The family of this 84-nucleotide sequence from Papaver somniferum is "Small nucleolar RNA R11/Z151". On this family, see Barneche et al., J Mol Biol 2001: "Identification of 66 box C/D snoRNAs in Arabidopsis thaliana: extensive gene duplications generated multiple isoforms predicting new ribosomal RNA 2'-O-methylation sites".
[Rfam]
RNA sequence: AGGCUAAUGAUGAUAAAUUUUAUAUCUUAGUGGGUUUUGAGCGAGAUUUUAUCAAUGAUCUGAGUGCUACAUACACUGAAGCCU
Number, nucleotide and partner (000 for none) at each position: 001a084002g083003g082004c081005u080006a000007a000008u000009g000010a000011u000012g000013a000014u000015a000016a000017a000018u000019u000020u000021u000022a000023u000024a000025u000026c000027u000028u000029a000030g000031u000032g000033g000034g000035u000036u000037u000038u000039g000040a000041g000042c000043g000044a000045g000046a000047u000048u000049u000050u000051a000052u000053c000054a000055a000056u000057g000058a000059u000060c000061u000062g000063a000064g000065u000066g000067c000068u000069a000070c000071a000072u000073a000074c000075a000076c000077u000078g000079a000080a005081g004082c003083c002084u001